RNA sequence: AAACCUAAACCUAGGCCUAAGCCUAGGCCUAGGCCUAAAGCCUAAACCUAGGCCUAGGCCUAGGCCUAGGCCUAGGCCUGAGCCUAGGCCUAGGCCUAAACCUAGGCCUAGGCCUGAGCCUAGGCCUAGGCCUAGGCCUAGGCCUAGGCCUAGGCCUAGGCCUAGAGCCUAGGCCUAGGCCUAGGCCUAGGCCUGAGCCUAGGCCUAGAGCCUAGGCCUAGGCCUAGGCCUGGGCCUAGGCCUAGGCCUAGGCCUAGGCCUGAGCCUAGAGCCUAGGCCUAGGCCUAGGCCUAGAGCCUAGGCCUAGGCCUAGGCCUAGGCCUAGGCCUAGAGCCUAGGCCU
Numbered sequence: 001a002a003a004c005c006u007a008a009a010c011c012u013a014g015g016c017c018u019a020a021g022c023c024u025a026g027g028c029c030u031a032g033g034c035c036u037a038a039a040g041c042c043u044a045a046a047c048c049u050a051g052g053c054c055u056a057g058g059c060c061u062a063g064g065c066c067u068a069g070g071c072c073u074a075g076g077c078c079u080g081a082g083c084c085u086a087g088g089c090c091u092a093g094g095c096c097u098a099a100a101c102c103u104a105g106g107c108c109u110a111g112g113c114c115u116g117a118g119c120c121u122a123g124g125c126c127u128a129g130g131c132c133u134a135g136g137c138c139u140a141g142g143c144c145u146a147g148g149c150c151u152a153g154g155c156c157u158a159g160g161c162c163u164a165g166a167g168c169c170u171a172g173g174c175c176u177a178g179g180c181c182u183a184g185g186c187c188u189a190g191g192c193c194u195g196a197g198c199c200u201a202g203g204c205c206u207a208g209a210g211c212c213u214a215g216g217c218c219u220a221g222g223c224c225u226a227g228g229c230c231u232g233g234g235c236c237u238a239g240g241c242c243u244a245g246g247c248c249u250a251g252g253c254c255u256a257g258g259c260c261u262g263a264g265c266c267u268a269g270a271g272c273c274u275a276g277g278c279c280u281a282g283g284c285c286u287a288g289g290c291c292u293a294g295a296g297c298c299u300a301g302g303c304c305u306a307g308g309c310c311u312a313g314g315c316c317u318a319g320g321c322c323u324a325g326g327c328c329u330a331g332a333g334c335c336u337a338g339g340c341c342u
Stems, first nucleotide, its partner, number of pairs: 016252002021186004027180002037176001040174005051072005057066002075132004089112007113124004141169003189243005198216007222235002264340004277284002296327014

A member of the RNA family "Proteobacterial sRNA sX6" from Anisodus acutangulus, 342 nucleotides long. The match comes from Rfam's covariance-model search (49 bits). Taxonomically the source falls in Anisodus (Eukaryota, Viridiplantae, Streptophytina, eudicotyledons).